[Rfam]
RNA sequence: GCAGGGAAGGGGAAGAAAGAGAGGUCCUAAGAGCAGUAGGAAUGGGCACACCAAGGAACACGUACGAUGCUCUGAUUUCUCCUCUAGCAUCGGAGGUGGAUAUAUGCAGUGUUGUGUUCCUGAUGCCUCCCAUUCCUAUGGUUCUUAGGUUCUCCUUCCUCUUACUUUUGUUC
Numbered sequence: 001g002c003a004g005g006g007a008a009g010g011g012g013a014a015g016a017a018a019g020a021g022a023g024g025u026c027c028u029a030a031g032a033g034c035a036g037u038a039g040g041a042a043u044g045g046g047c048a049c050a051c052c053a054a055g056g057a058a059c060a061c062g063u064a065c066g067a068u069g070c071u072c073u074g075a076u077u078u079c080u081c082c083u084c085u086a087g088c089a090u091c092g093g094a095g096g097u098g099g100a101u102a103u104a105u106g107c108a109g110u111g112u113u114g115u116g117u118u119c120c121u122g123a124u125g126c127c128u129c130c131c132a133u134u135c136c137u138a139u140g141g142u143u144c145u146u147a148g149g150u151u152c153u154c155c156u157u158c159c160u161c162u163u164a165c166u167u168u169u170g171u172u173c
Stems, first nucleotide, its partner, number of pairs: 010163004015158003021154003026149009037138010049125002053121001055120007
Dot-bracket structure: .........((((.(((...(((..(((((((((..((((((((((..((..(.(((((((....................................................))))))))..))...))))))))))..)))))))))..))).))).))))..........

Shown here is a 173-nucleotide sequence from Paspalum vaginatum, a member of the family "MIR2118 microRNA precursor family". Gene Ontology terms of the family: miRNA-mediated post-transcriptional gene silencing and RISC complex. The base pairs follow the family's consensus structure, which was predicted with RNAalifold. Lineage of the source: Eukaryota > Viridiplantae > Streptophyta > Streptophytina > Paspalum.